The family of this 115-nucleotide RNA from Plasmodium vivax is "U5 spliceosomal RNA". The family's RNA type in Rfam is spliceosomal small nuclear RNA.

RNA sequence: GGGUAUGUACUUACUACAUAACGUAUCAAUCUUUCGCCUUUUACUAAAGAUUGCCGUGUAGUAGGUACAAUAAAUACGUUAUACCACAAAUUUUUGUCGUGCCUUCCGGGCGCGU
Numbered sequence: 001g002g003g004u005a006u007g008u009a010c011u012u013a014c015u016a017c018a019u020a021a022c023g024u025a026u027c028a029a030u031c032u033u034u035c036g037c038c039u040u041u042u043a044c045u046a047a048a049g050a051u052u053g054c055c056g057u058g059u060a061g062u063a064g065g066u067a068c069a070a071u072a073a074a075u076a077c078g079u080u081a082u083a084c085c086a087c088a089a090a091u092u093u094u095u096g097u098c099g100u101g102c103c104u105u106c107c108g109g110g111c112g113c114g115u
Stems, first nucleotide, its partner, number of pairs: 003077004008067011027053008098114006
The organism belongs to Plasmodium, within Eukaryota.